[Rfam]
STAXI RNA: a 161-nucleotide sequence from Nematostella vectensis. Pairs were carried over by alignment from the consensus structure, which is taken from published work.
RNA sequence: AGACGUGUUUACACGGCAGGAAUUAUAUGUUAUGCCUACCUGCAAGAGACGUGUUUACACGGCAGGAAUUAUAUGUUAUGCCUACCUGCAAGAGACGUGUUCACACGGCAGGAAUUAUAUGUUAUGCCUACCUGCAAGAGACGUGUUUACACGGCAGGAAU
Numbered sequence: 001a002g003a004c005g006u007g008u009u010u011a012c013a014c015g016g017c018a019g020g021a022a023u024u025a026u027a028u029g030u031u032a033u034g035c036c037u038a039c040c041u042g043c044a045a046g047a048g049a050c051g052u053g054u055u056u057a058c059a060c061g062g063c064a065g066g067a068a069u070u071a072u073a074u075g076u077u078a079u080g081c082c083u084a085c086c087u088g089c090a091a092g093a094g095a096c097g098u099g100u101u102c103a104c105a106c107g108g109c110a111g112g113a114a115u116u117a118u119a120u121g122u123u124a125u126g127c128c129u130a131c132c133u134g135c136a137a138g139a140g141a142c143g144u145g146u147u148u149a150c151a152c153g154g155c156a157g158g159a160a161u
Stems, first nucleotide, its partner, number of pairs: 002017001004015004029050003033046001035066003039062002051060003075096003079092001081112003085108002097106003121142003125138001127158003131154002143152003
The match comes from Rfam's covariance-model search (58 bits).